[Rfam]
RNA sequence: AUCUUAUCAAGAGCAGGUGGAGGGACUGGCCCGAUGAAACCCGGCAACCGGCGGUAAACGCACGGUGCUAAUUCUUGCAGAGACGUAUCCAGCAGCAAUUGUCUGGAAUGCGUGACUCUGGCAGAUGAGAG
Number, nucleotide and partner (000 for none) at each position: 001a000002u130003c129004u128005u127006a126007u125008c124009a000010a000011g000012a000013g042014c000015a000016g041017g040018u039019g000020g000021a000022g032023g031024g030025a000026c077027u000028g075029g074030c024031c023032c022033g000034a000035u000036g000037a000038a000039a018040c017041c016042c013043g069044g068045c067046a066047a000048c065049c064050g000051g061052c060053g059054g000055u000056a000057a000058a000059c053060g052061c051062a000063c000064g049065g048066u046067g045068c044069u043070a000071a000072u000073u123074c029075u028076u000077g026078c120079a119080g118081a117082g116083a000084c000085g000086u000087a000088u000089c000090c000091a000092g000093c000094a000095g000096c000097a000098a000099u000100u000101g000102u000103c000104u000105g000106g000107a000108a000109u000110g000111c000112g000113u000114g000115a000116c082117u081118c080119u079120g078121g000122c000123a073124g008125a007126u006127g005128a004129g003130a002131g000
Record summary
SAM riboswitch aptamer (S box leader): a 131-nucleotide RNA sequence from Paenibacillus stellifer. The source organism's lineage runs through Bacteria, Bacillota, Bacilli, Paenibacillaceae and Paenibacillus. A search with the family's covariance model found it, with a score of 74 bits. Rfam links the family to the GO term regulation of gene expression. The family is grouped with related families in Rfam's "SAM clan".